RNA: Group II catalytic intron D1-D4-3
RNA sequence: UUUGGGGUGACCCAUACAUUGAAGUAAGCCAGACUGCGUAAACUGUGCUGACGAACAGGAACUGAAUACAGAGGCUAUGAGGUUGGAUGAGUAGGCACAUCACUGCAAAGUCCAAGACCGUAUUUUCGGAUAACCAAAAUAGUAGAUUCAGCAGUUAUAGUUUAAAGGGUAUUUAU
Number, nucleotide and partner (000 for none) at each position: 001u016002u000003u014004g013005g012006g011007g000008u000009g000010a000011c006012c005013c004014a003015u000016a001017c000018a000019u000020u000021g000022a000023a000024g000025u000026a000027a000028g176029c000030c000031a173032g172033a000034c000035u000036g000037c168038g000039u000040a163041a162042a161043c160044u159045g158046u000047g155048c154049u153050g152051a000052c000053g000054a000055a000056c000057a000058g000059g000060a000061a000062c151063u150064g149065a148066a147067u146068a000069c000070a000071g000072a000073g000074g143075c142076u141077a000078u138079g000080a000081g135082g134083u133084u132085g113086g112087a111088u110089g000090a000091g106092u105093a104094g103095g000096c000097a000098c000099a000100u000101c000102a000103c094104u093105g092106c091107a000108a000109a000110g088111u087112c086113c085114a000115a000116g000117a000118c000119c000120g000121u000122a000123u000124u000125u000126u000127c000128g000129g000130a000131u000132a084133a083134c082135c081136a000137a000138a078139a000140u000141a076142g075143u074144a000145g000146a067147u066148u065149c064150a063151g062152c050153a049154g048155u047156u000157a000158u045159a044160g043161u042162u041163u040164a000165a000166a000167g000168g037169g000170u000171a000172u032173u031174u000175a000176u028